[Rfam]
RNA sequence: CAGGUUGCCCAUUGCGGGAUCGGCAAGACCAAGGGCGCCAGCUCUUGGCGCCACUUCGUAUCCAUGUUGCUCAAUGGAGGAUAUGGCUAUGAGCA
Numbered sequence: 001c002a003g004g005u006u007g008c009c010c011a012u013u014g015c016g017g018g019a020u021c022g023g024c025a026a027g028a029c030c031a032a033g034g035g036c037g038c039c040a041g042c043u044c045u046u047g048g049c050g051c052c053a054c055u056u057c058g059u060a061u062c063c064a065u066g067u068u069g070c071u072c073a074a075u076g077g078a079g080g081a082u083a084u085g086g087c088u089a090u091g092a093g094c095a
Stems, first nucleotide, its partner, number of pairs: 001023001003021004008017002034052008055093006062086007070079003
A member of the RNA family "Repression of heat shock gene expression (ROSE) element" from Rhizobiales bacterium GAS113, 95 nucleotides long.
Pairs were carried over by alignment from the consensus structure, which is taken from published work.
The family's RNA type in Rfam is RNA thermoregulator.
From the family's description: This family represents a 5' UTR cis-regulatory element found in heat shock mRNAs and is known as the ROSE (repression of heat shock gene expression) element.
Gene Ontology terms of the family: response to temperature stimulus and regulation of translation.
The match comes from Rfam's covariance-model search (62 bits).
On this family, see Nocker et al., Nucleic Acids Res 2001: "A mRNA-based thermosensor controls expression of rhizobial heat shock genes".
The organism belongs to Hyphomicrobiales, within Bacteria.